[Rfam]
RNA sequence: AACAUAAAUAGAGGCGCAAACGUAUGGUAUCAUUUGGAUGUUAAGAAGAGGUUCCUUUGAUGACGAAUGUGAAGGAUGCGGUUGCCGAAAGGGUAUAUGAGACCUUAAUAUAUUCUUGGGGGGCGAGAGUACAUUCCGCUCACUGCCGUAAAUAUAUAUUUUAUGGAGCGCUAUUUAUGUG
Numbered sequence: 001a002a003c004a005u006a007a008a009u010a011g012a013g014g015c016g017c018a019a020a021c022g023u024a025u026g027g028u029a030u031c032a033u034u035u036g037g038a039u040g041u042u043a044a045g046a047a048g049a050g051g052u053u054c055c056u057u058u059g060a061u062g063a064c065g066a067a068u069g070u071g072a073a074g075g076a077u078g079c080g081g082u083u084g085c086c087g088a089a090a091g092g093g094u095a096u097a098u099g100a101g102a103c104c105u106u107a108a109u110a111u112a113u114u115c116u117u118g119g120g121g122g123g124c125g126a127g128a129g130u131a132c133a134u135u136c137c138g139c140u141c142a143c144u145g146c147c148g149u150a151a152a153u154a155u156a157u158a159u160u161u162u163a164u165g166g167a168g169c170g171c172u173a174u175u176u177a178u179g180u181g
Base pairs, nucleotide, nucleotide: 006176007175008174009173010172011171016085017084018083019082021080022079023078024077031069032068033067034066035065036064089117090116091115092114093113094112095111096110097109098108100106118144119143121141122140123139124138125137127135128134146166147165148164149163150162151161152160
Lysine riboswitch aptamer: a 181-nucleotide sequence from Oceanirhabdus seepicola. The family's consensus secondary structure is taken from published work. A search with the family's covariance model found it, with a score of 81 bits. Lineage of the source: Bacteria > Clostridia > Eubacteriales > Clostridiaceae > Oceanirhabdus.